RNA: c-di-GMP-I riboswitch aptamer
RNA sequence: UCCCGAUAACGGCAAAACCGGCGAAAGCCGGCGACGCAAAGCUACAGGGGCUAAAGACUUAGGGCGAUCCGGCCCGAAGAACAAGCCAGCCAGCUGCCGAA
Numbered sequence: 001u002c003c004c005g006a007u008a009a010c011g012g013c014a015a016a017a018c019c020g021g022c023g024a025a026a027g028c029c030g031g032c033g034a035c036g037c038a039a040a041g042c043u044a045c046a047g048g049g050g051c052u053a054a055a056g057a058c059u060u061a062g063g064g065c066g067a068u069c070c071g072g073c074c075c076g077a078a079g080a081a082c083a084a085g086c087c088a089g090c091c092a093g094c095u096g097c098c099g100a101a
Stems, first nucleotide, its partner, number of pairs: 012037002018031005040095004047091002049087003